[Rfam]
RNA: Bacillus sRNA ncr982
Organism: Bacillus atrophaeus
RNA sequence: GGUGUAAACAUGAUGUAAUUUUUUCCUCCUUUUCAGGUUCGUUUCUAAGCCAGGGCGAACCUGCUUUUUUUGUUUUGUU
Numbered sequence: 001g002g003u004g005u006a007a008a009c010a011u012g013a014u015g016u017a018a019u020u021u022u023u024u025c026c027u028c029c030u031u032u033u034c035a036g037g038u039u040c041g042u043u044u045c046u047a048a049g050c051c052a053g054g055g056c057g058a059a060c061c062u063g064c065u066u067u068u069u070u071u072g073u074u075u076u077g078u079u
Stems, first nucleotide, its partner, number of pairs: 002011003034063009044054002